[Rfam]
RNA sequence: ACGGAAGCCCGGUGAGGCCUAGGCCGAUCCGGAAGAGAAGGGUCAGUCUCCCGAUCCGGGCGCCUAGCACGGUUCCCGGCACCCACGCGGAGUCAUAGCCGCGAUAAUGGCAGAAGUGUUGCGGGCCUGCGUAAUUGCGGGAAGCGGACGGUAUCGACGGCCCUUUGGGUGGGGUUGCAGCCGGAGGCGCCGCAAGAUCGCCGAGGCCACCCACGCAGCCCAGAAAUGGACGCAUGGUAACCGGGUUCCGUGUUAGCGGGCGGCGCACCGACCAGUUUCGGUACGCCGCCCGCAUUGCAUU
Numbered sequence: 001a002c003g004g005a006a007g008c009c010c011g012g013u014g015a016g017g018c019c020u021a022g023g024c025c026g027a028u029c030c031g032g033a034a035g036a037g038a039a040g041g042g043u044c045a046g047u048c049u050c051c052c053g054a055u056c057c058g059g060g061c062g063c064c065u066a067g068c069a070c071g072g073u074u075c076c077c078g079g080c081a082c083c084c085a086c087g088c089g090g091a092g093u094c095a096u097a098g099c100c101g102c103g104a105u106a107a108u109g110g111c112a113g114a115a116g117u118g119u120u121g122c123g124g125g126c127c128u129g130c131g132u133a134a135u136u137g138c139g140g141g142a143a144g145c146g147g148a149c150g151g152u153a154u155c156g157a158c159g160g161c162c163c164u165u166u167g168g169g170u171g172g173g174g175u176u177g178c179a180g181c182c183g184g185a186g187g188c189g190c191c192g193c194a195a196g197a198u199c200g201c202c203g204a205g206g207c208c209a210c211c212c213a214c215g216c217a218g219c220c221c222a223g224a225a226a227u228g229g230a231c232g233c234a235u236g237g238u239a240a241c242c243g244g245g246u247u248c249c250g251u252g253u254u255a256g257c258g259g260g261c262g263g264c265g266c267a268c269c270g271a272c273c274a275g276u277u278u279c280g281g282u283a284c285g286c287c288g289c290c291c292g293c294a295u296u297g298c299a300u301u
Stems, first nucleotide, its partner, number of pairs: 003064002007061006016052002021049002026044005065255008076244004083237003087233003093228001098111003118219006124208005129201003135195006144188002149183004158177007256293010268281003
Dot-bracket structure: ..((..((((((...((...((...(((((.........)))))...)).))...)))))).))((((((((...((((...(((.(((...(....(((........)))......((((((((((((((...((((((...((...((((.....(((((((......)))))))..))))...)).))))))...)))..))))).....))))))........)..))).)))...))))...))))))))((((((((((..(((........)))..))))))))))........

Shown here is a 301-nucleotide sequence from Mycobacterium saskatchewanense, a member of the family "Mycobacterium smegmatis small RNA 1". About the family: Mycobacterium smegmatis small RNA 1 is highly expressed during stationary phase of growth. Ms1 RNA directly interacts with RNA polymerase (RNAP), but in a different way than 6S, which is present in other bacteria. Ms1 does not require the presence of the main sigma factor for RNAP interaction. There is evidence that Ms1 RNA may function similar to 6S RNA in M. smegmatis which does not have 6S RNA. The literature on the family includes a 2014 paper in Nucleic Acids Res by Hnilicova et al., "Ms1, a novel sRNA interacting with the RNA polymerase core in mycobacteria". Pairs were carried over by alignment from the consensus structure, which was predicted with CMfinder. A search with the family's covariance model found it, with a score of 236 bits. Taxonomically the source falls in Mycobacterium simiae complex (Bacteria, Actinomycetota, Actinomycetes, Mycobacteriaceae).